Rfam assigns this 71-nucleotide RNA from Aphidius gifuensis to the family "mir-1175 microRNA precursor family". A search with the family's covariance model found it, with a score of 70 bits. Rfam 15.1 lists 181 matches to the family in 170 species. Rfam links the family to the GO terms miRNA-mediated post-transcriptional gene silencing and RISC complex. The organism belongs to Aphidius, within Eukaryota.
[Rfam]
RNA sequence: CGGUUCAAGUGGAGAAGUGGUCUCUACGCUUUAUAUAGAAAAGUGAGAUUCAACUCCUCCAACUUAUUCCG
Number, nucleotide and partner (000 for none) at each position: 001c000002g000003g000004u000005u000006c000007a065008a064009g063010u061011g060012g059013a058014g057015a000016a000017g055018u053019g000020g000021u000022c000023u048024c047025u000026a000027c045028g044029c043030u042031u041032u000033a000034u000035a000036u000037a000038g000039a000040a000041a031042a030043g029044u028045g027046a000047g024048a023049u000050u000051c000052a000053a018054c000055u017056c000057c014058u013059c012060c011061a010062a000063c009064u008065u007066a000067u000068u000069c000070c000071g000